RNA sequence: AACCAGUUUGCAACUCGCGUUACUCCGGUACUUAAGACUGUACAUUUAAUUAGUCAGGUACCUGAAGUAGCGCGCGCUGCGACUGGACA
Numbered sequence: 001a002a003c004c005a006g007u008u009u010g011c012a013a014c015u016c017g018c019g020u021u022a023c024u025c026c027g028g029u030a031c032u033u034a035a036g037a038c039u040g041u042a043c044a045u046u047u048a049a050u051u052a053g054u055c056a057g058g059u060a061c062c063u064g065a066a067g068u069a070g071c072g073c074g075c076g077c078u079g080c081g082a083c084u085g086g087a088c089a
Stems, first nucleotide, its partner, number of pairs: 009081004014076001016074007030059002033057001036055004
Dot-bracket structure: ........((((.(.(((((((.......((.(..((((............)))).)))........))))))).).))))........
This 89-nucleotide RNA sequence from Trichogramma brassicae belongs to the Rfam family "mir-275 microRNA precursor family". The source organism's lineage runs through Eukaryota, Insecta, Neoptera, Endopterygota and Trichogramma. Gene Ontology terms of the family: RISC complex and miRNA-mediated post-transcriptional gene silencing. On this family, see Marco et al., Genome Biol Evol 2010: "Functional shifts in insect microRNA evolution".